[Rfam]
RNA: Bacterial RNase P class A
Organism: Oharaeibacter diazotrophicus
RNA sequence: CCAGCCGGUUGGACGGCCGCUCGGGCGAGACGCGAAAGCGUGCCCGGGAGGAAAGUCCGGGCUCCACGGAAACACGGUGCCGGGUAACGCCCGGCGGGGGCGACCCCAGGGAAAGUGCCACAGAAAACAGACCGCCCCGGCAUGCCGGGGUAAGGGUGAAACGGUGGGGUGAGAGCCCACCGCGGCUCCGGCAACGGAGACGGCACGGCAAACCCCACCGGGAGCAAGACCGAAUAGGGGCGGCGCGGGUCUCCGGACCCGGUUCGUUUCCGAGCCAGCCGCCCGGGUGGGUUGCGCGAGGCGUCCGGCAACGGACGUCCCAGAUGAAUGGUCGUCGGGCGGGAAACCGCUCACAGAACCCGGCUUACAGACCGGCUGGCACA
Numbered sequence: 001c002c003a004g005c006c007g008g009u010u011g012g013a014c015g016g017c018c019g020c021u022c023g024g025g026c027g028a029g030a031c032g033c034g035a036a037a038g039c040g041u042g043c044c045c046g047g048g049a050g051g052a053a054a055g056u057c058c059g060g061g062c063u064c065c066a067c068g069g070a071a072a073c074a075c076g077g078u079g080c081c082g083g084g085u086a087a088c089g090c091c092c093g094g095c096g097g098g099g100g101c102g103a104c105c106c107c108a109g110g111g112a113a114a115g116u117g118c119c120a121c122a123g124a125a126a127a128c129a130g131a132c133c134g135c136c137c138c139g140g141c142a143u144g145c146c147g148g149g150g151u152a153a154g155g156g157u158g159a160a161a162c163g164g165u166g167g168g169g170u171g172a173g174a175g176c177c178c179a180c181c182g183c184g185g186c187u188c189c190g191g192c193a194a195c196g197g198a199g200a201c202g203g204c205a206c207g208g209c210a211a212a213c214c215c216c217a218c219c220g221g222g223a224g225c226a227a228g229a230c231c232g233a234a235u236a237g238g239g240g241c242g243g244c245g246c247g248g249g250u251c252u253c254c255g256g257a258c259c260c261g262g263u264u265c266g267u268u269u270c271c272g273a274g275c276c277a278g279c280c281g282c283c284c285g286g287g288u289g290g291g292u293u294g295c296g297c298g299a300g301g302c303g304u305c306c307g308g309c310a311a312c313g314g315a316c317g318u319c320c321c322a323g324a325u326g327a328a329u330g331g332u333c334g335u336c337g338g339g340c341g342g343g344a345a346a347c348c349g350c351u352c353a354c355a356g357a358a359c360c361c362g363g364c365u366u367a368c369a370g371a372c373c374g375g376c377u378g379g380c381a382c383a
Base pairs, nucleotide, nucleotide: 001379002378003377004376005375006374007373008372009371010370011368012336013335014334015333016332017331018330020048021047022046023045024044025043026042027041053366054365055364057363058362059361060360061359062224063223064222065221071269072268075220076219077218078217079216080094081093082092083091084090095109096107097106098105099104110215111214115213116212117209118208119207132155133154134151135150136149137148138147139146140145163181164180165179166178167177168176182204183202184201186199187198188197189196190195228293229292230291231290238284239283240282241281242280243279261276262275263274264273265272300319301318302317303316304315305314306313307312